[Rfam]
Annotation
Glycine riboswitch aptamer: a 102-nucleotide sequence from Pseudoblastomonas halimionae. The source organism's lineage runs through Bacteria, Pseudomonadati, Pseudomonadota, Erythrobacteraceae and Pseudoblastomonas. Gene Ontology term of the family: glycine biosynthetic process. The match comes from Rfam's covariance-model search (46 bits). Rfam describes the family as follows. This family represents the bacterial glycine riboswitch.

RNA sequence: AUGCGAACUCUGGAAAGCGUCGCUUUCGGGCGGCCACCGAAGGGGUAAGCGCAGGGGUCUGCCCGGCGUAAUCUCUCAGGUUCAAAUGACAGAGGGGGCUCU
Numbered sequence: 001a002u003g004c005g006a007a008c009u010c011u012g013g014a015a016a017g018c019g020u021c022g023c024u025u026u027c028g029g030g031c032g033g034c035c036a037c038c039g040a041a042g043g044g045g046u047a048a049g050c051g052c053a054g055g056g057g058u059c060u061g062c063c064c065g066g067c068g069u070a071a072u073c074u075c076u077c078a079g080g081u082u083c084a085a086a087u088g089a090c091a092g093a094g095g096g097g098g099c100u101c102u
Base pairs, nucleotide, nucleotide: 008094009093010092011091012090019034020033021032022031036081037080038079039077040076043075044074045073049069050068051067052066